Bacterial RNase P class A: a 397-nucleotide RNA sequence from Lachnoclostridium phytofermentans.

RNA sequence: UGAGUAGUACAGAUGAUCGCGCCGAUUUAAUCGGUGAGGAAAGUCCGGGCUUCAUAGGGCAGGGUGCCGGAUAACGUCCGGUGGAGGCGACUCUAAGGCCAGUGCAACAGAAAAUAAACCGCCUAACCGCAGGUUAGAUAAUAACCGUUAGGUUAGGUAAGGGUGGAAUGGCGGUGUAAGAGACCACCGCUUCUCUGGUAACAGAGAAGGCUGUGUAAACCCCACUUGAAGCAAGACCAAACAAAUACCUUUAUGGUAUGAGAGCGAUACGGCGGCCCGUCGUGCUCUUAGGUAGGUCGCGUUUUGUCUGGUAACGGGCAAAUGAGCUGUAUGGUAACGUACAGUCAAGAUAGAUGAUCAUCAAAUACAGAACCCGGCUUAUAGUACUACUCAACUU
Numbered sequence: 001u002g003a004g005u006a007g008u009a010c011a012g013a014u015g016a017u018c019g020c021g022c023c024g025a026u027u028u029a030a031u032c033g034g035u036g037a038g039g040a041a042a043g044u045c046c047g048g049g050c051u052u053c054a055u056a057g058g059g060c061a062g063g064g065u066g067c068c069g070g071a072u073a074a075c076g077u078c079c080g081g082u083g084g085a086g087g088c089g090a091c092u093c094u095a096a097g098g099c100c101a102g103u104g105c106a107a108c109a110g111a112a113a114a115u116a117a118a119c120c121g122c123c124u125a126a127c128c129g130c131a132g133g134u135u136a137g138a139u140a141a142u143a144a145c146c147g148u149u150a151g152g153u154u155a156g157g158u159a160a161g162g163g164u165g166g167a168a169u170g171g172c173g174g175u176g177u178a179a180g181a182g183a184c185c186a187c188c189g190c191u192u193c194u195c196u197g198g199u200a201a202c203a204g205a206g207a208a209g210g211c212u213g214u215g216u217a218a219a220c221c222c223c224a225c226u227u228g229a230a231g232c233a234a235g236a237c238c239a240a241a242c243a244a245a246u247a248c249c250u251u252u253a254u255g256g257u258a259u260g261a262g263a264g265c266g267a268u269a270c271g272g273c274g275g276c277c278c279g280u281c282g283u284g285c286u287c288u289u290a291g292g293u294a295g296g297u298c299g300c301g302u303u304u305u306g307u308c309u310g311g312u313a314a315c316g317g318g319c320a321a322a323u324g325a326g327c328u329g330u331a332u333g334g335u336a337a338c339g340u341a342c343a344g345u346c347a348a349g350a351u352a353g354a355u356g357a358u359c360a361u362c363a364a365a366u367a368c369a370g371a372a373c374c375c376g377g378c379u380u381a382u383a384g385u386a387c388u389a390c391u392c393a394a395c396u397u
Stems, first nucleotide, its partner, number of pairs: 001393010011382001012362007020036007041380003045377005050231004057278004062227005067081005082096001083094004097222002102220002104216003119162002121158008170188002173185003189211001190209008235298004260289006269283005326345008
It is annotated as a ribozyme. It is one of the family's seed sequences. The base pairs follow the family's consensus structure, which is taken from published work. About the family: Ribonuclease P (RNase P) is a ubiquitous endoribonuclease, found in archaea, bacteria and eukarya as well as chloroplasts and mitochondria.